[Rfam]
RNA sequence: UGCAUAUUUUGCCCUGGCGGAGCUCGACCGCCGGUCCAGGACAUGAUCGCGUUUAUCGACGAUCACCGUGACGCCUAUGGGGUCGAGCCGAUCUGCAGGGUUCUGCCGAUCGCCCCA
Numbered sequence: 001u002g003c004a005u006a007u008u009u010u011g012c013c014c015u016g017g018c019g020g021a022g023c024u025c026g027a028c029c030g031c032c033g034g035u036c037c038a039g040g041a042c043a044u045g046a047u048c049g050c051g052u053u054u055a056u057c058g059a060c061g062a063u064c065a066c067c068g069u070g071a072c073g074c075c076u077a078u079g080g081g082g083u084c085g086a087g088c089c090g091a092u093c094u095g096c097a098g099g100g101u102u103c104u105g106c107c108g109a110u111c112g113c114c115c116c117a
Stems, first nucleotide, its partner, number of pairs: 016032005078117005089112002092109002095106004
Shown here is a 117-nucleotide RNA from Rhodovastum atsumiense, a member of the family "ALIL pseudoknot".
The family's consensus secondary structure is taken from published work.
A reference for the family is Mazauric et al. (2008), "Apical loop-internal loop RNA pseudoknots: a new type of stimulator of -1 translational frameshifting in bacteria", J Biol Chem.
Rfam classes the family as a cis-regulatory element.
NCBI's taxonomy places the organism under Bacteria, Pseudomonadati, Alphaproteobacteria, Acetobacterales, Rhodovastum.